[Rfam]
RNA sequence: GAUUUCAACUGAAAAAUUCAUCAACAACAAAGUUGUAUAAUUCAUCAAAGUCUAUAACUUUUAUUUUGGUCAUUUCUUCAUCCGAUAAAGUGUUAGUAACAUUGUUCACAAAAUUCAUAUAUCUUUCAUCUGGUUCUAUAAACCAUAACACAGAUAUGUCAAUUUUGUGAACCAUGUUACUAUCACUUUGUCGGAUAAAGAAAUGACCAAAAUAAAAGUUAUAGAUCUUGAUGAGUUAUACAACUUUGUUGUUAAUGACUUUUUCAGUUGAAAUC
Numbered sequence: 001g002a003u004u005u006c007a008a009c010u011g012a013a014a015a016a017u018u019c020a021u022c023a024a025c026a027a028c029a030a031a032g033u034u035g036u037a038u039a040a041u042u043c044a045u046c047a048a049a050g051u052c053u054a055u056a057a058c059u060u061u062u063a064u065u066u067u068g069g070u071c072a073u074u075u076c077u078u079c080a081u082c083c084g085a086u087a088a089a090g091u092g093u094u095a096g097u098a099a100c101a102u103u104g105u106u107c108a109c110a111a112a113a114u115u116c117a118u119a120u121a122u123c124u125u126u127c128a129u130c131u132g133g134u135u136c137u138a139u140a141a142a143c144c145a146u147a148a149c150a151c152a153g154a155u156a157u158g159u160c161a162a163u164u165u166u167g168u169g170a171a172c173c174a175u176g177u178u179a180c181u182a183u184c185a186c187u188u189u190g191u192c193g194g195a196u197a198a199a200g201a202a203a204u205g206a207c208c209a210a211a212a213u214a215a216a217a218g219u220u221a222u223a224g225a226u227c228u229u230g231a232u233g234a235g236u237u238a239u240a241c242a243a244c245u246u247u248g249u250u251g252u253u254a255a256u257g258a259c260u261u262u263u264u265c266a267g268u269u270g271a272a273a274u275c
Base pairs, nucleotide, nucleotide: 014262015261016260018258019257020256021255023253024252026250027249030246031245032244033243034242035241036240037239038238039237040236041235042234044232045231046230047229048228050226051225052224053223055221056220057219058218059217060216061215062214063213064212065211066210067209069207070206071205072204073203074202075201077199078198080196081195083193084192085191086190087189088188089187090186091185092184094182095181096180097179098178099177101175102174104172105171106170107169108168109167110166111165112164114162115161117159118158119157120156121155122154131145132144133143134142135141
This 275-nucleotide sequence from Oryza nivara belongs to the Rfam family "MIR821 microRNA precursor family". For this family Rfam cites "Rice embryogenic calli express a unique set of microRNAs, suggesting regulatory roles of microRNAs in plant post-embryogenic development" (Luo et al., FEBS Lett, 2006). It scores 254 bits against the family's covariance model. The organism belongs to Oryza, within Eukaryota.